[Rfam]
RNA sequence: CUUGAUGGAGCCCAGCCACAGUGGUUGGUCGGUGGGGCGGUCCUGGCCGUAGGUGGCCAGCAGCGCCUGGGCCUC
Number, nucleotide and partner (000 for none) at each position: 001c000002u000003u000004g000005a000006u000007g000008g000009a000010g000011c000012c000013c000014a026015g025016c024017c023018a000019c000020a000021g000022u000023g017024g016025u015026u014027g000028g000029u000030c000031g000032g000033u069034g000035g000036g000037g000038c065039g064040g000041u000042c000043c060044u059045g058046g000047c056048c055049g054050u000051a000052g000053g000054u049055g048056g047057c000058c045059a044060g043061c000062a000063g000064c039065g038066c000067c000068u000069g033070g000071g000072c000073c000074u000075c000
Background: Rfam assigns this 75-nucleotide RNA sequence from Phytohabitans suffuscus to the family "ASpks TB sRNA". NCBI's taxonomy places the organism under Bacteria, Bacillati, Actinomycetota, Micromonosporales, Phytohabitans. The base pairs follow the family's consensus structure, which is taken from published work. For this family Rfam cites "Identification of small RNAs in Mycobacterium tuberculosis" (Arnvig and Young, Mol Microbiol, 2009). Rfam classes the family as an antisense RNA.